[Rfam]
RNA sequence: CGGGAUUGUUGAAUGAUGAUUACUGAGUGAUCCAUCGGCUGACUCUCUGUGCUGAUCUUCAAUAAACUGACAACACCCG
Numbered sequence: 001c002g003g004g005a006u007u008g009u010u011g012a013a014u015g016a017u018g019a020u021u022a023c024u025g026a027g028u029g030a031u032c033c034a035u036c037g038g039c040u041g042a043c044u045c046u047c048u049g050u051g052c053u054g055a056u057c058u059u060c061a062a063u064a065a066a067c068u069g070a071c072a073a074c075a076c077c078c079g
Stems, first nucleotide, its partner, number of pairs: 002078003007075004011068001015032003019028001035055005
Small nucleolar RNA SNORD71: a 79-nucleotide sequence from Aquarana catesbeiana. Gene Ontology terms of the family: RNA processing and nucleolus. Rfam's curators write: snoRNA HBII-239 belongs to the family of C/D snoRNAs.It is the human orthologue of the mouse MBII-239 described and is predicted to guide 2'O-ribose methylation of 5.8S rRNA on residue U14.